[Rfam]
This 95-nucleotide RNA from Desulfotruncus arcticus belongs to the Rfam family "pan motif". The family's RNA type in Rfam is cis-regulatory element.

RNA sequence: AGGGCGGUAUCCCGCAGGAGCCGCACCUUUAGUUUAGUUGGUUUUUUAAUUAAAGUUAAAUUUCCGCUUGGAGCCGGUAGGACCGAGACGGGUUA
Numbered sequence: 001a002g003g004g005c006g007g008u009a010u011c012c013c014g015c016a017g018g019a020g021c022c023g024c025a026c027c028u029u030u031a032g033u034u035u036a037g038u039u040g041g042u043u044u045u046u047u048a049a050u051u052a053a054a055g056u057u058a059a060a061u062u063u064c065c066g067c068u069u070g071g072a073g074c075c076g077g078u079a080g081g082a083c084c085g086a087g088a089c090g091g092g093u094u095a
Stems, first nucleotide, its partner, number of pairs: 001028003004024005010019002064091003067087005074081002
The organism belongs to Desulfotruncus arcticus, within Bacteria.
The match comes from Rfam's covariance-model search (57 bits).